glmS glucosamine-6-phosphate activated ribozyme aptamer: a 171-nucleotide RNA from Anoxybacillus sp. B7M1. Pairs were carried over by alignment from the consensus structure, which is taken from published work.
RNA sequence: UUUCAUGAAGAAGCGCCUGGACUAAGCGAUGAUCGGAUAACCGCUUAGUUGACGAGGAGGAGGUUGAUCGAAUGCUCGGCGGAUGCCUCCCGGCUGGUGCGAUUGCAGCCGCAAACUUUUCCUUAAAACAAAGAGGCGACUCUUUGCACAAAGGGAAAAGUCCAAUCGUUU
Numbered sequence: 001u002u003u004c005a006u007g008a009a010g011a012a013g014c015g016c017c018u019g020g021a022c023u024a025a026g027c028g029a030u031g032a033u034c035g036g037a038u039a040a041c042c043g044c045u046u047a048g049u050u051g052a053c054g055a056g057g058a059g060g061a062g063g064u065u066g067a068u069c070g071a072a073u074g075c076u077c078g079g080c081g082g083a084u085g086c087c088u089c090c091c092g093g094c095u096g097g098u099g100c101g102a103u104u105g106c107a108g109c110c111g112c113a114a115a116c117u118u119u120u121c122c123u124u125a126a127a128a129c130a131a132a133g134a135g136g137c138g139a140c141u142c143u144u145u146g147c148a149c150a151a152a153g154g155g156a157a158a159a160g161u162c163c164a165a166u167c168g169u170u171u
Stems, first nucleotide, its partner, number of pairs: 020050008059090005068079004091111006115161007129146007
Background: By type it is a riboswitch.